[Rfam]
RNA sequence: AAAAGCAUCAACUGGCACACCCCCUGCAUCGCUCUCGACGCAAUCGACAUAAAGCCAGGCCUUCAACGACGAGGGCCGUGCUUCCCGAGAAAGGGACCGGACAAAGGCGUCCUCACUGGGUAACCAGUGGGACGCC
Numbered sequence: 001a002a003a004a005g006c007a008u009c010a011a012c013u014g015g016c017a018c019a020c021c022c023c024c025u026g027c028a029u030c031g032c033u034c035u036c037g038a039c040g041c042a043a044u045c046g047a048c049a050u051a052a053a054g055c056c057a058g059g060c061c062u063u064c065a066a067c068g069a070c071g072a073g074g075g076c077c078g079u080g081c082u083u084c085c086c087g088a089g090a091a092a093g094g095g096a097c098c099g100g101a102c103a104a105a106g107g108c109g110u111c112c113u114c115a116c117u118g119g120g121u122a123a124c125c126a127g128u129g130g131g132a133c134g135c136c
Base pairs, nucleotide, nucleotide: 013103014102015027016026017025054081055080058077060075061074063072064071083096084095085094086093106136107135108134109133110132111131112130114129115128116127117126118125119124
This 136-nucleotide sequence from Stutzerimonas nosocomialis belongs to the Rfam family "Pseudomonas sRNA P11". Lineage of the source: Bacteria > Pseudomonadota > Pseudomonadales > Pseudomonadaceae > Stutzerimonas. The match comes from Rfam's covariance-model search (110 bits). About the family: This small RNA (sRNA) was computationally identified in the genome of the opportunistic pathogen Pseudomonas aeruginosa and its expression verified by northern blot analysis. A reference for the family is Livny et al. (2006), "Identification of 17 Pseudomonas aeruginosa sRNAs and prediction of sRNA-encoding genes in 10 diverse pathogens using the bioinformatic tool sRNAPredict2", Nucleic Acids Res.